[Rfam]
This 206-nucleotide RNA from Oryzias sinensis belongs to the Rfam family "Small nucleolar RNA U3". The base pairs follow the family's consensus structure, which is taken from published work. A search with the family's covariance model found it, with a score of 112 bits. Small nucleolar RNAs (snoRNAs) are involved in the processing and modification of rRNA in the nucleolus. There are two main classes of snoRNAs: the box C/D class, and the box H/ACA class. A reference for the family is Zwieb (1997), "The uRNA database", Nucleic Acids Res. The source organism's lineage runs through Eukaryota, Opisthokonta, Deuterostomia, Ctenosquamata and Oryzias.
RNA sequence: AAGACUCUACUUUCAGGGAUCAUUUCUUUAGUCUGGAACUAGAGGAUUGUGUUUCUACAGAGGUUGGUCUGGCUGUCCAUGAUGAUGAAUGAAGAUGUUUCCUUCAGAGCAGGAAGCUGGUGAGAAGAUGAAAAUCUUCUUCACUGAUGAAGACUGUUCAGUGUUUCUGGAUCUGACACUGAAGGAGGAAACAUUGUCUGAGUGGA
Numbered sequence: 001a002a003g004a005c006u007c008u009a010c011u012u013u014c015a016g017g018g019a020u021c022a023u024u025u026c027u028u029u030a031g032u033c034u035g036g037a038a039c040u041a042g043a044g045g046a047u048u049g050u051g052u053u054u055c056u057a058c059a060g061a062g063g064u065u066g067g068u069c070u071g072g073c074u075g076u077c078c079a080u081g082a083u084g085a086u087g088a089a090u091g092a093a094g095a096u097g098u099u100u101c102c103u104u105c106a107g108a109g110c111a112g113g114a115a116g117c118u119g120g121u122g123a124g125a126a127g128a129u130g131a132a133a134a135u136c137u138u139c140u141u142c143a144c145u146g147a148u149g150a151a152g153a154c155u156g157u158u159c160a161g162u163g164u165u166u167c168u169g170g171a172u173c174u175g176a177c178a179c180u181g182a183a184g185g186a187g188g189a190a191a192c193a194u195u196g197u198c199u200g201a202g203u204g205g206a
Base pairs, nucleotide, nucleotide: 002040003039006035009032010031011030015027016026017025018024049064050063052061053060076206077205078204079203080202095194096193097192098191099190100189101188102187103186104185105184109157110156111155119145120144121143122142123141124139125138126137127136128135160180161179162178163177164176
Dot-bracket structure: .((..(..(((...((((.....))))..)))..)...))........((.((......)).))...........(((((..............(((((((((((...(((.......((((((((((......))))).))))).........)))..(((((...........)))))...))))))))))).......)))))